This 46-nucleotide RNA sequence from Lentisphaera araneosa belongs to the Rfam family "Acido-Lenti-1 RNA". The base pairs follow the family's consensus structure, which is taken from published work. NCBI's taxonomy places the organism under Bacteria, Pseudomonadati, Lentisphaeria, Lentisphaerales, Lentisphaera araneosa. The family's RNA type in Rfam is small RNA.
RNA sequence: CCUAGCACUUUCGUGCCAGGCUGUACUAUAUCGUCCCUUUGGGACU
Numbered sequence: 001c002c003u004a005g006c007a008c009u010u011u012c013g014u015g016c017c018a019g020g021c022u023g024u025a026c027u028a029u030a031u032c033g034u035c036c037c038u039u040u041g042g043g044a045c046u
Stems, first nucleotide, its partner, number of pairs: 001020003005016004033045005